Rfam assigns this 121-nucleotide RNA from Alloscardovia omnicolens to the family "FMN riboswitch aptamer (RFN element)". The RFN element is a highly conserved domain that is found frequently in the 5'-untranslated regions of prokaryotic mRNAs that encode for flavin mononucleotide (FMN) biosynthesis and transport proteins. This element is a metabolite-dependent riboswitch that directly binds FMN in the absence of proteins. In Bacillus subtilis, the riboswitch most likely controls gene expression by causing premature transcription termination within the 5' untranslated region of the ribDEAHT operon and precluding access to the ribosome-binding site of ypaA mRNA.The FMN riboswitch structure, reported in present an FMN-bound six-stem junction, adopts a butterfly-like scaffold, stapled together by opposingly directed but nearly identically folded peripheral domains. The match comes from Rfam's covariance-model search (89 bits).
RNA sequence: GGUAAGUUUCAGGGCGAGGCGAAAAUCCUCGACUGGCGGUACAGCCCGCGAGCCGCUCACGCGGUUGAUUUGGUGAGAGUCCAAAGCCAACGGUUAUAGUCCGGAUGAAGAGAAACAGGAG
Numbered sequence: 001g002g003u004a005a006g007u008u009u010c011a012g013g014g015c016g017a018g019g020c021g022a023a024a025a026u027c028c029u030c031g032a033c034u035g036g037c038g039g040u041a042c043a044g045c046c047c048g049c050g051a052g053c054c055g056c057u058c059a060c061g062c063g064g065u066u067g068a069u070u071u072g073g074u075g076a077g078a079g080u081c082c083a084a085a086g087c088c089a090a091c092g093g094u095u096a097u098a099g100u101c102c103g104g105a106u107g108a109a110g111a112g113a114a115a116c117a118g119g120a121g
Stems, first nucleotide, its partner, number of pairs: 003119001006116005017029003032100002034089002036049004044087002052065003069085005091103003